[Rfam]
RNA sequence: GUCAACUGCCCACUAUAGAAAGCGGGGGCUUGAAAAAAGCCUGAUUGACUACCCUCAGCCACAUAAGUGGCUACGUUAGACAGUUACACCUUGGGAUGCUGCUCAAGUUCCAGACUCUGUCGUGCAGGUCUAAACAGUCCUGAGGGGUAAGGGCAGUGAUCUGCACAUAACAAGCCUGUCUAACAUUGGGGAUGAGCAACUAAC
Numbered sequence: 001g002u003c004a005a006c007u008g009c010c011c012a013c014u015a016u017a018g019a020a021a022g023c024g025g026g027g028g029c030u031u032g033a034a035a036a037a038a039g040c041c042u043g044a045u046u047g048a049c050u051a052c053c054c055u056c057a058g059c060c061a062c063a064u065a066a067g068u069g070g071c072u073a074c075g076u077u078a079g080a081c082a083g084u085u086a087c088a089c090c091u092u093g094g095g096a097u098g099c100u101g102c103u104c105a106a107g108u109u110c111c112a113g114a115c116u117c118u119g120u121c122g123u124g125c126a127g128g129u130c131u132a133a134a135c136a137g138u139c140c141u142g143a144g145g146g147g148u149a150a151g152g153g154c155a156g157u158g159a160u161c162u163g164c165a166c167a168u169a170a171c172a173a174g175c176c177u178g179u180c181u182a183a184c185a186u187u188g189g190g191g192a193u194g195a196g197c198a199a200c201u202a203a204c
Base pairs, nucleotide, nucleotide: 001049002048003047004046005045007043008042010028011027013025014024029039030038031037052190053189054188057072058071059070060069061068075184076183077182078181079180081178082177083176086120087119091113092112093111094110095109096108097107098200100198101197102196103195104194105193122166123165124164125163126162127161128160129159130158134157135156137154138153139152140151141150143148